The family of this 444-nucleotide RNA from Trichoderma atroviride is "RNase MRP". NCBI's taxonomy places the organism under Eukaryota, leotiomyceta, Sordariomycetes, Hypocreomycetidae, Trichoderma atroviride. Rfam classes the family as a ribozyme.

RNA sequence: CCUUCGCUCAACAAAUCGCCAUUCGAAGCUUACACACGGAGAUUCUGCUCUGCAGCAUCUCUUCCAAACACAGCUUUGGGAGAAAGUCCCCGGACGUCUCCUUUUUGGAGCAUGCGGAAACGCGCCGCCAUAGAAGCACUGCGGCUGACCUCCGCGCCUUGGCCCAGCUGCCGCAUCUGCCCUGCCUGCUGCUAAAUCCGUUUCUCACGAGGCACUGUCAAACCCUAAUCUUGCGUCUCUGGCCCCUAUGGAUGAAGAUAUGAGUCCGUGCUGGAAGGCUGCGGGAUUGGGGUGGCGACGCUGAAUGGAGAUGGAUGGCAGGUGGACGUUGUCAUGUCUGCCGGCUGUGGUAUCGGGUGCAGAGGAUUUGUUGUCGAGGUCGAUAGUUAUGCGAUUGCCUGGCGCAAGCUUGGUUACUCGAUGGGGCCCAUUCUUGAUGCGAAG
Numbered sequence: 001c002c003u004u005c006g007c008u009c010a011a012c013a014a015a016u017c018g019c020c021a022u023u024c025g026a027a028g029c030u031u032a033c034a035c036a037c038g039g040a041g042a043u044u045c046u047g048c049u050c051u052g053c054a055g056c057a058u059c060u061c062u063u064c065c066a067a068a069c070a071c072a073g074c075u076u077u078g079g080g081a082g083a084a085a086g087u088c089c090c091c092g093g094a095c096g097u098c099u100c101c102u103u104u105u106u107g108g109a110g111c112a113u114g115c116g117g118a119a120a121c122g123c124g125c126c127g128c129c130a131u132a133g134a135a136g137c138a139c140u141g142c143g144g145c146u147g148a149c150c151u152c153c154g155c156g157c158c159u160u161g162g163c164c165c166a167g168c169u170g171c172c173g174c175a176u177c178u179g180c181c182c183u184g185c186c187u188g189c190u191g192c193u194a195a196a197u198c199c200g201u202u203u204c205u206c207a208c209g210a211g212g213c214a215c216u217g218u219c220a221a222a223c224c225c226u227a228a229u230c231u232u233g234c235g236u237c238u239c240u241g242g243c244c245c246c247u248a249u250g251g252a253u254g255a256a257g258a259u260a261u262g263a264g265u266c267c268g269u270g271c272u273g274g275a276a277g278g279c280u281g282c283g284g285g286a287u288u289g290g291g292g293u294g295g296c297g298a299c300g301c302u303g304a305a306u307g308g309a310g311a312u313g314g315a316u317g318g319c320a321g322g323u324g325g326a327c328g329u330u331g332u333c334a335u336g337u338c339u340g341c342c343g344g345c346u347g348u349g350g351u352a353u354c355g356g357g358u359g360c361a362g363a364g365g366a367u368u369u370g371u372u373g374u375c376g377a378g379g380u381c382g383a384u385a386g387u388u389a390u391g392c393g394a395u396u397g398c399c400u401g402g403c404g405c406a407a408g409c410u411u412g413g414u415u416a417c418u419c420g421a422u423g424g425g426g427c428c429c430a431u432u433c434u435u436g437a438u439g440c441g442a443a444g
Base pairs, nucleotide, nucleotide: 002444003443004442005441006440007439008437009436010435011434014396015395016394017393018392019391023080024078025077026076027075028074029073039061040060041059042058043057045055046054047053048052086427088426089425090424091423107111113124114123115122116121331367332366333365337363338362339361340360341359345356346355347354398413399412401410402409403408